[Rfam]
RNA sequence: GAUGGCAAGUGAUGCAAUCUAAUCUUAUAAUACAGUCUUAAUCUCUUUGAAGACCAAAAAUCUCCGCUUAUUUGCUGAUGCCGUG
Numbered sequence: 001g002a003u004g005g006c007a008a009g010u011g012a013u014g015c016a017a018u019c020u021a022a023u024c025u026u027a028u029a030a031u032a033c034a035g036u037c038u039u040a041a042u043c044u045c046u047u048u049g050a051a052g053a054c055c056a057a058a059a060a061u062c063u064c065c066g067c068u069u070a071u072u073u074g075c076u077g078a079u080g081c082c083g084u085g
Base pairs, nucleotide, nucleotide: 003083004082005081006080007079
Record summary: A member of the RNA family "Small nucleolar RNA R16" from Vanilla planifolia, 85 nucleotides long. On this family, see Galardi et al., Mol Cell Biol 2002: "Purified box C/D snoRNPs are able to reproduce site-specific 2'-O-methylation of target RNA in vitro". It is annotated as a C/D-box small nucleolar RNA. Its family is annotated with nucleolus and RNA processing in the Gene Ontology. The family's consensus secondary structure was predicted with PFOLD.